[Rfam]
RNA sequence: GGGAACAACUCUGGAGAGACCGGUCAAACCCGGCGCCGAAGGUGCAUGGGGCGGGGCGUCUGCCCGGCCCUGAACUCUCAGGCAAAAGGACAGAGGGGCGCCC
Numbered sequence: 001g002g003g004a005a006c007a008a009c010u011c012u013g014g015a016g017a018g019a020c021c022g023g024u025c026a027a028a029c030c031c032g033g034c035g036c037c038g039a040a041g042g043u044g045c046a047u048g049g050g051g052c053g054g055g056g057c058g059u060c061u062g063c064c065c066g067g068c069c070c071u072g073a074a075c076u077c078u079c080a081g082g083c084a085a086a087a088g089g090a091c092a093g094a095g096g097g098g099c100g101c102c103c
Base pairs, nucleotide, nucleotide: 006098009095010094011093012092013091020033021032022031023030035083036082037081038079039078042077044075048070049069
A member of the RNA family "Glycine riboswitch aptamer" from Luteimonas granuli, 103 nucleotides long. It scores 61 bits against the family's covariance model. Gene Ontology term of the family: glycine biosynthetic process. The source organism's lineage runs through Bacteria, Pseudomonadati, Pseudomonadota, Gammaproteobacteria and Luteimonas.